[Rfam]
RNA sequence: UAGUCUCGGUGAAGAUGCCGGGUACCCGCAAUGGGACGAAAAGACCCCGUGAACCUUCACUACAGCUUAGUAUUGACUUUGGACAACGGAUGUGUAGGAUAGGUGGGAGACUGAGAAGCUGUGGCGCCAGCCAUGGUGGAGUCGCCGUUGAAAUACCACCCUUUCGUUGUUUGAAGCCUAACCUCAUCAAGGGGGACAGUGCUUGGCGGGUAGUUUGACUGGGGUGGUCGCCUCCAAAAGAGUAACGGAGGCUUCCAAAGGUGCCCUCAGCACGCUUGGCAACCGUGCGUAGAGUGCAAUGGCAUAAGGGCGCUUGACUGUGAGGCCGACAAGCCGAUCAGGUGGGAAACCAGGGCAUAGUGAUCCGGUGGCGCUGUAUGGGCAGGCCAUCGCUCAAAGGAUAAAAGGUACUCCGGGGAUAACAGGCUGAUCCUUCCCAAGAGCUCACAUCGACGGGGGGGUUUGGCACCUCGAUGUCGGCUCGUCACAUCCUGGGGCUGGAGAAGGUCCCAAGGGUUGGGCUGUUCGCCCAUUAAAGUGGCACGCGAGCUGGGUUCAGAACGUCGCGAGACAGUUCGGUCUCUAUCUAUUGCGGGCGUU
Numbered sequence: 001u002a003g004u005c006u007c008g009g010u011g012a013a014g015a016u017g018c019c020g021g022g023u024a025c026c027c028g029c030a031a032u033g034g035g036a037c038g039a040a041a042a043g044a045c046c047c048c049g050u051g052a053a054c055c056u057u058c059a060c061u062a063c064a065g066c067u068u069a070g071u072a073u074u075g076a077c078u079u080u081g082g083a084c085a086a087c088g089g090a091u092g093u094g095u096a097g098g099a100u101a102g103g104u105g106g107g108a109g110a111c112u113g114a115g116a117a118g119c120u121g122u123g124g125c126g127c128c129a130g131c132c133a134u135g136g137u138g139g140a141g142u143c144g145c146c147g148u149u150g151a152a153a154u155a156c157c158a159c160c161c162u163u164u165c166g167u168u169g170u171u172u173g174a175a176g177c178c179u180a181a182c183c184u185c186a187u188c189a190a191g192g193g194g195g196a197c198a199g200u201g202c203u204u205g206g207c208g209g210g211u212a213g214u215u216u217g218a219c220u221g222g223g224g225u226g227g228u229c230g231c232c233u234c235c236a237a238a239a240g241a242g243u244a245a246c247g248g249a250g251g252c253u254u255c256c257a258a259a260g261g262u263g264c265c266c267u268c269a270g271c272a273c274g275c276u277u278g279g280c281a282a283c284c285g286u287g288c289g290u291a292g293a294g295u296g297c298a299a300u301g302g303c304a305u306a307a308g309g310g311c312g313c314u315u316g317a318c319u320g321u322g323a324g325g326c327c328g329a330c331a332a333g334c335c336g337a338u339c340a341g342g343u344g345g346g347a348a349a350c351c352a353g354g355g356c357a358u359a360g361u362g363a364u365c366c367g368g369u370g371g372c373g374c375u376g377u378a379u380g381g382g383c384a385g386g387c388c389a390u391c392g393c394u395c396a397a398a399g400g401a402u403a404a405a406a407g408g409u410a411c412u413c414c415g416g417g418g419a420u421a422a423c424a425g426g427c428u429g430a431u432c433c434u435u436c437c438c439a440a441g442a443g444c445u446c447a448c449a450u451c452g453a454c455g456g457g458g459g460g461g462u463u464u465g466g467c468a469c470c471u472c473g474a475u476g477u478c479g480g481c482u483c484g485u486c487a488c489a490u491c492c493u494g495g496g497g498c499u500g501g502a503g504a505a506g507g508u509c510c511c512a513a514g515g516g517u518u519g520g521g522c523u524g525u526u527c528g529c530c531c532a533u534u535a536a537a538g539u540g541g542c543a544c545g546c547g548a549g550c551u552g553g554g555u556u557c558a559g560a561a562c563g564u565c566g567c568g569a570g571a572c573a574g575u576u577c578g579g580u581c582u583c584u585a586u587c588u589a590u591u592g593c594g595g596g597c598g599u600u
Stems, first nucleotide, its partner, number of pairs: 005022005025596008034588003038583002046417004051413002053409005059214004066206002069203004075178001077176014092161001102160005109143003118137008182194003217229004230252006253398001255355002261313006267293002270288005294303002318341003324335003343352003366392007374385002426467003430464001431461007441451002478553001479551004483545001484542005491516002494511006518532005559577004563572003